[Rfam]
RNA: c-di-AMP riboswitch aptamer (ydaO/yuaA leader)
Organism: Niallia circulans
RNA sequence: AUUUCUAGAUCGCUGAAACCAUACGGUACGGGGGAACCAUUCUUUGCUGGGCGUUUAUUAUGCCCAUGGGGUGAAUCCUUUUUAAGGUAGGGCUACUCAAGGCCCGAAUCCGACAGCUAACCUCGUAAGCGUUAAUAUGAGAAGGA
Numbered sequence: 001a002u003u004u005c006u007a008g009a010u011c012g013c014u015g016a017a018a019c020c021a022u023a024c025g026g027u028a029c030g031g032g033g034g035a036a037c038c039a040u041u042c043u044u045u046g047c048u049g050g051g052c053g054u055u056u057a058u059u060a061u062g063c064c065c066a067u068g069g070g071g072u073g074a075a076u077c078c079u080u081u082u083u084a085a086g087g088u089a090g091g092g093c094u095a096c097u098c099a100a101g102g103c104c105c106g107a108a109u110c111c112g113a114c115a116g117c118u119a120a121c122c123u124c125g126u127a128a129g130c131g132u133u134a135a136u137a138u139g140a141g142a143a144g145g146a
Base pairs, nucleotide, nucleotide: 011131012130013129014128018027019026020025028126029125030124031123032122033121038068039067069111070110071109077087078086079085080084090105091104092103093102